Shown here is a 90-nucleotide sequence from an Olavius algarvensis Delta 4 endosymbiont, a member of the family "c-di-GMP-I riboswitch aptamer". The organism belongs to Deltaproteobacteria, within Bacteria. Rfam links the family to the GO term cyclic-di-GMP binding.
[Rfam]
RNA sequence: UUUACUGAAGGGCAAACCUUCCGAAAGGAGGGGGCGCAAAGCUUCCGGUCUAAGUUCGUAUCAGACGAAUAAGAUAGCGGGGUUGCUAGG
Number, nucleotide and partner (000 for none) at each position: 001u000002u000003u000004a000005c000006u000007g000008a000009a000010g000011g000012g037013c036014a000015a000016a000017c032018c031019u030020u029021c028022c027023g000024a000025a000026a000027g022028g021029a020030g019031g018032g017033g000034g000035c000036g013037c012038a000039a000040a084041g083042c082043u081044u000045c080046c079047g078048g075049u074050c073051u000052a000053a000054g000055u069056u068057c067058g066059u000060a000061u000062c000063a000064g000065a000066c058067g057068a056069a055070u000071a000072a000073g050074a049075u048076a000077g000078c047079g046080g045081g043082g042083u041084u040085g000086c000087u000088a000089g000090g000